[Rfam]
RNA sequence: AGAGCGGUAUCGUAAAGCCCGGUGACUCUGGCUGUUCGUAGAACAGCCUAGCUGCUCCUGAGAUGGAGUGGGAGAGAUUGAAAUCGGAGCCCAGGGUGAGCCGCUUU
Dot-bracket structure: (((((((..(((.....((.((...(((....(((((...)))))......(((((((......)))))))...............))).)).)).))).)))))))
RNA: DUF3800-III RNA